[Rfam]
RNA sequence: CCUUGGGACACCCCUCCCCAACGAGGGGCCAUAUACCUGGAAGGGUAGAUCAU
Numbered sequence: 001c002c003u004u005g006g007g008a009c010a011c012c013c014c015u016c017c018c019c020a021a022c023g024a025g026g027g028g029c030c031a032u033a034u035a036c037c038u039g040g041a042a043g044g045g046u047a048g049a050u051c052a053u
Stems, first nucleotide, its partner, number of pairs: 011028006034047005